[Rfam]
The record is a 206-nucleotide RNA from Tetrapisispora phaffii, which matches "Small nucleolar RNA snR43" in Rfam. On this family, see Balakin et al., Cell 1996: "The RNA world of the nucleolus: two major families of small RNAs defined by different box elements with related functions". Rfam links the family to the GO terms nucleolus and RNA processing. NCBI's taxonomy places the organism under Eukaryota, Dikarya, saccharomyceta, Saccharomycetales, Tetrapisispora phaffii. Its Rfam clan is "SNORA9 clan".
RNA sequence: CUCUCCUGUUUCUGCCUCAACUUCCUUAUGUUCUAUGGAUUUAUGGGUUCUAAUUAUGGAGAAAAUCAAGUCCUCAUUCCACGGUUCUGCAAUUUUUAAAACUGAUACCUCGCAGAAUCCUGGUUUGGCGAUCCGUGUGGCUCGUUGUUCUAUUCUAGAGUGAAUGUUCCCUAUUCUUUCACUUUAUAAUAACGGCCACUACAUUC
Number, nucleotide and partner (000 for none) at each position: 001c000002u000003c061004u060005c059006c058007u000008g000009u000010u000011u000012c000013u000014g000015c000016c047017u046018c045019a044020a042021c000022u000023u039024c038025c037026u000027u000028a000029u000030g000031u000032u000033c000034u000035a000036u000037g025038g024039a023040u000041u000042u020043a000044u019045g018046g017047g016048u000049u000050c000051u000052a000053a000054u000055u000056a000057u000058g006059g005060a004061g003062a000063a000064a000065a000066u000067c000068a000069a000070g000071u131072c130073c000074u128075c127076a126077u000078u000079c123080c122081a121082c000083g119084g118085u117086u116087c115088u114089g113090c112091a000092a000093u000094u000095u000096u000097u000098a000099a000100a000101a000102c000103u000104g000105a000106u000107a000108c000109c000110u000111c000112g090113c089114a088115g087116a086117a085118u084119c083120c000121u081122g080123g079124u000125u000126u076127g075128g074129c000130g072131a071132u000133c000134c000135g000136u000137g199138u198139g197140g196141c000142u000143c194144g193145u192146u191147g190148u000149u000150c000151u000152a000153u000154u000155c000156u000157a185158g184159a183160g182161u181162g000163a000164a178165u000166g177167u000168u173169c000170c000171c000172u000173a168174u000175u000176c000177u166178u164179u000180c000181a161182c160183u159184u158185u157186a000187u000188a000189a000190u147191a146192a145193c144194g143195g000196c140197c139198a138199c137200u000201a000202c000203a000204u000205u000206c000